The record is a 147-nucleotide RNA sequence from Macleaya cordata, which matches "small nucleolar RNA snoR135" in Rfam. On this family, see Chen and Wu, Nucleic Acids Res 2009: "Mining small RNA sequencing data: a new approach to identify small nucleolar RNAs in Arabidopsis". The base pairs follow the family's consensus structure, which was predicted with RNAalifold. NCBI's taxonomy places the organism under Eukaryota, Viridiplantae, Tracheophyta, Papaveraceae, Macleaya.
RNA sequence: AACGCAGAGAUUGUGUGUAUCGGAGUUGUGCUUUUAAUUCAAUGCACUUAUAACCGAAAGAGUUCUCUGCAACAUUGACUUGGGGAAGGUGGGCAGUUGAUUUUCAACUCAUCCAUUGAUUUAUCAACAAUCAUUUUCCCCACAUCU
Dot-bracket structure: ...(((((((....((((((.....................))))))................)))))))...........(((((((((((...((((.........................))))..)))))))))))......

Its family is annotated with RNA processing and nucleolus in the Gene Ontology. It scores 130 bits against the family's covariance model.